[Rfam]
RNA sequence: GGCAGCCUGAAAUGUGCGGAGUAACCUAUAAUUUUGAACCUACACAUGACAGAAGGGAGUUUGGAGUUUGAAAGUACGAUGCCAGGCCGCAUAGCAAUUCCGACACAUGUCUUUAAGAUAUGUGCAACGGCAGCGGAAGGCAGAGGCUUUCAACAGAACACCCACCUAGCGAGGGCUAGGUGUCAAAAUAUAGGGGAACGGCAUUUUGGGUGCAA
Numbered sequence: 001g002g003c004a005g006c007c008u009g010a011a012a013u014g015u016g017c018g019g020a021g022u023a024a025c026c027u028a029u030a031a032u033u034u035u036g037a038a039c040c041u042a043c044a045c046a047u048g049a050c051a052g053a054a055g056g057g058a059g060u061u062u063g064g065a066g067u068u069u070g071a072a073a074g075u076a077c078g079a080u081g082c083c084a085g086g087c088c089g090c091a092u093a094g095c096a097a098u099u100c101c102g103a104c105a106c107a108u109g110u111c112u113u114u115a116a117g118a119u120a121u122g123u124g125c126a127a128c129g130g131c132a133g134c135g136g137a138a139g140g141c142a143g144a145g146g147c148u149u150u151c152a153a154c155a156g157a158a159c160a161c162c163c164a165c166c167u168a169g170c171g172a173g174g175g176c177u178a179g180g181u182g183u184c185a186a187a188a189u190a191u192a193g194g195g196g197a198a199c200g201g202c203a204u205u206u207u208g209g210g211u212g213c214a215a
Base pairs, nucleotide, nucleotide: 002213003212005211006210007209008208009207010206011205012204013203014202015201017200018199031189032188033187034186035185036184037183038181039180040179055163056162057161059159060158061157062156064154069152070151071150072149073148074147075146081141082140087136088135089134090133
Dot-bracket structure: .((.(((((((((((.((............((((((((((..............(((.((((.(....(((((((.....((....((((..........................................))))...))....))))))).).)))).)))...............))).))))))).........)))))))))))))))..
Annotation:
Shown here is a 215-nucleotide RNA from Acetivibrio thermocellus, a member of the family "6S / SsrS RNA". It is annotated as a non-coding RNA gene.